[Rfam]
Description
The family of this 336-nucleotide part of an RNA from Mediterranea sp. An20 is "Bacterial large subunit ribosomal RNA". The organism belongs to Mediterranea, within Bacteria. It scores 2767 bits against the family's covariance model.
RNA sequence: UGAGUGAAUCACGGUUAAGGAACUAGGCAAAUUGACCCUGUAACUUCGGGAUAAAGGGUCCUCACUUAUUUGGUGAGGCGCAGAGAAUCGGUCCAGGCAACUGUUUACCAAAAACACAGGGCUGUGCGAAAUCGAAAGAUGCAGUAUACAGCCUGACACCUGCCCGGUGCCGGAAGGUUAAGAGGAGAGGUCAUCGCAAGAGAAGCCUUGAAUUGAAGCCCCGGUAAACGGCGGCCGUAACUAUAACGGUCCUAAGGUAGCGAAAUUCCUUGUCGGGUAAGUUCCGACCUGCACGAAUGGUGUAAUGAUCUGGACGCUGUCUCAACCGUGAGCUCA
Number, nucleotide and partner (000 for none) at each position: 001u336002g335003a334004g333005u000006g000007a000008a000009u331010c330011a329012c328013g327014g326015u325016u324017a000018a322019g321020g320021a000022a000023c000024u000025a000026g000027g000028c000029a000030a000031a000032u000033u000034g000035a059036c058037c057038c056039u055040g000041u000042a000043a000044c049045u000046u000047c000048g000049g044050g000051a000052u000053a000054a000055a039056g038057g037058g036059u035060c078061c077062u076063c075064a074065c073066u000067u072068a000069u000070u000071u000072g067073g065074u064075g063076a062077g061078g060079c083080g000081c000082a000083g079084a000085g000086a000087a000088u000089c000090g000091g315092u314093c313094c312095a311096g310097g309098c307099a306100a000101c000102u116103g115104u114105u000106u000107a000108c000109c000110a000111a000112a000113a000114a104115c103116a102117c000118a000119g154120g153121g152122c151123u150124g149125u148126g147127c144128g000129a000130a000131a140132u139133c138134g000135a000136a000137a000138g133139a132140u131141g000142c000143a000144g127145u000146a000147u126148a125149c124150a123151g122152c121153c120154u119155g000156a000157c302158a301159c300160c299161u000162g232163c231164c230165c000166g000167g229168u228169g225170c224171c223172g222173g221174a000175a000176g220177g219178u218179u000180a000181a000182g214183a213184g000185g000186a000187g209188a208189g207190g206191u205192c000193a000194u201195c200196g000197c000198a000199a000200g195201a194202g000203a000204a000205g191206c190207c189208u188209u187210g000211a000212a000213u183214u182215g000216a000217a000218g178219c177220c176221c173222c172223g171224g170225u169226a000227a000228a168229c167230g164231g163232c162233g251234g250235c249236c248237g247238u246239a000240a000241c000242u000243a000244u000245a000246a238247c237248g236249g235250u234251c233252c256253u000254a000255a000256g252257g000258u000259a000260g000261c000262g289263a000264a000265a000266u000267u000268c000269c000270u000271u000272g288273u287274c286275g285276g284277g283278u000279a000280a000281g000282u000283u277284c276285c275286g274287a273288c272289c262290u000291g000292c000293a000294c000295g000296a000297a000298u000299g160300g159301u158302g157303u000304a000305a000306u099307g098308a000309u097310c096311u095312g094313g093314a092315c091316g000317c000318u000319g000320u020321c019322u018323c000324a016325a015326c014327c013328g012329u011330g010331a009332g000333c004334u003335c002336a001